Source information: The record is an 82-nucleotide sequence from Lichenibacterium ramalinae, which matches "tRNA" in Rfam. The base pairs follow the family's consensus structure, which is taken from published work. By type it is a transfer RNA.
Nucleotides: 082
Base pairs, nucleotide, nucleotide: 001081002080003079004078005077006076007075011026012025013024028044029043030042031041032040058074059073060072061071062070
Number, partner (000 for none) and nucleotide at each position: 001081g002080g003079a004078g005077g006076a007075g008000u009000g010000u011026c012025c013024c014000g015000a016000g017000c018000g019000g020000c021000a022000a023000a024013g025012g026011g027000g028044g029043c030042g031041g032040a033000c034000u035000g036000u037000a038000a039000a040032u041031c042030c043029g044028c045000u046000g047000g048000c049000u050000a051000u052000g053000c054000c055000u056000u057000c058074g059073u060072a061071g062070g063000u064000u065000c066000g067000a068000g069000u070062c071061c072060u073059a074058c075007c076006u077005c078004c079003u080002c081001c082000a